This 65-nucleotide RNA sequence from Hippoglossus hippoglossus belongs to the Rfam family "miR-430 microRNA precursor family".
The sequence is in the family's curated seed alignment.
Clan: mir-290 clan.
Rfam links the family to the GO terms miRNA-mediated post-transcriptional gene silencing and RISC complex.

RNA sequence: AGAUCACCUCAAAUGGAGCCACUGAUGAUUCUCUUCUUCAUAAGUGCUUCUCUUUGGGGUUGUCU
Numbered sequence: 001a002g003a004u005c006a007c008c009u010c011a012a013a014u015g016g017a018g019c020c021a022c023u024g025a026u027g028a029u030u031c032u033c034u035u036c037u038u039c040a041u042a043a044g045u046g047c048u049u050c051u052c053u054u055u056g057g058g059g060u061u062g063u064c065u
Stems, first nucleotide, its partner, number of pairs: 003063002006060005013054001015051004020046004025041003